[Rfam]
RNA sequence: CCUAUGGAGAGUUAAAACCACUUGAGUAGUUGCGACGAAAAAGAAUUCGAAGAAGUAGGAA
Number, nucleotide and partner (000 for none) at each position: 001c059002c058003u057004a056005u055006g000007g000008a000009g048010a047011g046012u045013u044014a000015a000016a000017a000018c000019c000020a000021c043022u042023u041024g000025a000026g000027u000028a000029g036030u035031u000032g000033c000034g000035a030036c029037g000038a000039a000040a000041a023042a022043g021044a013045a012046u011047u010048c009049g000050a000051a000052g000053a000054a000055g005056u004057a003058g002059g001060a000061a000